[Rfam]
RNA sequence: GGGCUUGUUUGGAUUUGACGGCAAGACGAGAUGGUAUGUAAGCAUGCAGAGCGUUGGUGGUUAGCUCUUUAAUCUCAGUCAUCGAACAAUUAAUUGGCGAAAACAAUUACGCUCUCGCUGCCUAACCGAAGUACAGUAGGUUACUGGCUUUAUUCAGCUAUUAGAUAGCUGAACGAGACACCACUCUGGAGAUGUUGUUCCGAGUUGAAGGGCAAAGUGGUGCAGGCUUUUCGGGAAGAGUCUUUGUAUGCCUCGCUGCAAAGAUGAAAUUUAGAGGAUAAGGUGUUGGUUGGUGGUCUAGGUCUUGCCAACACUCGAAAACCGAAGGCUAGAAUAAGCAUGUAGAAAGCGUAUGGUUUCCUUGUUCGGACGUGGGUUCGACUCCCACCAGGUCCACUA
Number, nucleotide and partner (000 for none) at each position: 001g395002g394003g393004c392005u391006u390007g389008u000009u000010u000011g000012g000013a000014u000015u000016u000017g000018a000019c368020g367021g365022c364023a363024a362025g361026a000027c000028g000029a000030g358031a357032u356033g000034g354035u353036a352037u351038g350039u349040a000041a000042g000043c342044a341045u340046g339047c338048a068049g067050a066051g065052c064053g000054u000055u000056g083057g082058u081059g080060g079061u078062u077063a000064g052065c051066u050067c049068u048069u000070u000071a000072a000073u000074c000075u000076c000077a062078g061079u060080c059081a058082u057083c056084g000085a000086a000087c000088a000089a000090u000091u000092a000093a000094u000095u000096g000097g000098c000099g000100a000101a000102a000103a000104c000105a000106a000107u000108u000109a000110c000111g000112c000113u000114c000115u000116c000117g000118c000119u000120g000121c000122c000123u000124a000125a000126c000127c000128g000129a000130a000131g000132u000133a000134c000135a000136g000137u000138a000139g000140g000141u000142u000143a000144c000145u000146g000147g000148c000149u176150u175151u000152a000153u172154u171155c000156a000157g000158c000159u000160a000161u000162u000163a000164g000165a000166u000167a000168g000169c000170u000171g154172a153173a000174c000175g150176a149177g000178a000179c222180a221181c220182c219183a218184c217185u211186c210187u209188g000189g000190a206191g205192a000193u203194g000195u000196u000197g000198u235199u234200c233201c000202g232203a193204g000205u191206u190207g000208a000209a187210g186211g185212g000213c000214a000215a000216a000217g184218u183219g182220g181221u180222g179223c000224a000225g000226g000227c000228u000229u000230u000231u000232c202233g200234g199235g198236a000237a000238g000239a000240g265241u264242c263243u262244u261245u260246g259247u258248a257249u000250g000251c277252c276253u275254c274255g000256c000257u248258g247259c246260a245261a244262a243263g242264a241265u240266g000267a000268a000269a000270u000271u000272u000273a000274g254275a253276g252277g251278a000279u000280a000281a000282g315283g314284u313285g312286u311287u310288g309289g308290u307291u000292g304293g303294u302295g000296g000297u333298c332299u331300a000301g329302g294303u293304c292305u000306u000307g290308c289309c288310a287311a286312c285313a284314c283315u282316c000317g000318a000319a000320a000321a000322c000323c000324g000325a000326a000327g000328g000329c301330u000331a299332g298333a297334a000335u000336a000337a000338g047339c046340a045341u044342g043343u000344a000345g000346a000347a000348a000349g039350c038351g037352u036353a035354u034355g000356g032357u031358u030359u000360c000361c025362u024363u023364g022365u021366u000367c020368g019369g000370a000371c000372g388373u387374g386375g385376g384377u000378u000379c000380g000381a000382c000383u000384c376385c375386c374387a373388c372389c007390a006391g005392g004393u003394c002395c001396a000397c000398u000399a000
transfer-messenger RNA: a 399-nucleotide RNA from Prevotella bivia. It scores 139 bits against the family's covariance model.